RNA sequence: UUGUGACGGGUAAGUCUUAUACGACCAGCUCCCAUUGAACUCCCCCAGGUUCGGAAGGAAGCAAGGGUAGAUGGUUGUAGCGGUGCGAUAUAAGGGGCUUGCCCAUUU
Numbered sequence: 001u002u003g004u005g006a007c008g009g010g011u012a013a014g015u016c017u018u019a020u021a022c023g024a025c026c027a028g029c030u031c032c033c034a035u036u037g038a039a040c041u042c043c044c045c046c047a048g049g050u051u052c053g054g055a056a057g058g059a060a061g062c063a064a065g066g067g068u069a070g071a072u073g074g075u076u077g078u079a080g081c082g083g084u085g086c087g088a089u090a091u092a093a094g095g096g097g098c099u100u101g102c103c104c105a106u107u108u
Base pairs, nucleotide, nucleotide: 008104009103010102011101012100013099014098015097017093018092019091020090021089022087023086024084025083
The record is a 108-nucleotide sequence from Solitalea koreensis, which matches "Bacteroidales small SRP" in Rfam.
A search with the family's covariance model found it, with a score of 106 bits.
The literature on the family includes a 2020 paper in Nat Commun by Ryan et al., "A high-resolution transcriptome map identifies small RNA regulation of metabolism in the gut microbe Bacteroides thetaiotaomicron".
It is annotated as a non-coding RNA gene.
Lineage of the source: Bacteria > Pseudomonadati > Bacteroidota > Sphingobacteriales > Solitalea.